[Rfam]
RNA: glmS glucosamine-6-phosphate activated ribozyme aptamer
Organism: Thermaerobacillus caldiproteolyticus
RNA sequence: UUGAUUUGUAAAGCGCCUGGACUAAGCUUUGGUCGGAAAAAAGCUUAGUUGACGAGGAGGAGGUUUAUCGAUCGUUCGGCGGAUGCCUCCCGGUUGUCGCGAUUACAGCCGUAAGUCCUUUCUAAAAACAAAGAGGCGACUCUUUGGACAAAGGGAAGGACGUAAUCGCAA
Numbered sequence: 001u002u003g004a005u006u007u008g009u010a011a012a013g014c015g016c017c018u019g020g021a022c023u024a025a026g027c028u029u030u031g032g033u034c035g036g037a038a039a040a041a042a043g044c045u046u047a048g049u050u051g052a053c054g055a056g057g058a059g060g061a062g063g064u065u066u067a068u069c070g071a072u073c074g075u076u077c078g079g080c081g082g083a084u085g086c087c088u089c090c091c092g093g094u095u096g097u098c099g100c101g102a103u104u105a106c107a108g109c110c111g112u113a114a115g116u117c118c119u120u121u122c123u124a125a126a127a128a129c130a131a132a133g134a135g136g137c138g139a140c141u142c143u144u145u146g147g148a149c150a151a152a153g154g155g156a157a158g159g160a161c162g163u164a165a166u167c168g169c170a171a
Stems, first nucleotide, its partner, number of pairs: 020050008029041001059090005068079004091111006115161007129146007